Salmonella enterica sRNA STnc40: a 68-nucleotide RNA sequence from Klebsiella variicola.
RNA sequence: ACAGUGCCACGGCCGUCUGAGCUAAGGCCUGAUAAAAAAACAAAGGCGCAGAGUUCUGCGCCUUUUUU
Numbered sequence: 001a002c003a004g005u006g007c008c009a010c011g012g013c014c015g016u017c018u019g020a021g022c023u024a025a026g027g028c029c030u031g032a033u034a035a036a037a038a039a040a041c042a043a044a045g046g047c048g049c050a051g052a053g054u055u056c057u058g059c060g061c062c063u064u065u066u067u068u
Stems, first nucleotide, its partner, number of pairs: 002019003006013002042065010
Source information
The sequence is in the family's curated seed alignment. The organism belongs to Klebsiella variicola, within Bacteria. By type it is a small RNA. Pairs were carried over by alignment from the consensus structure, which was predicted with LocARNA.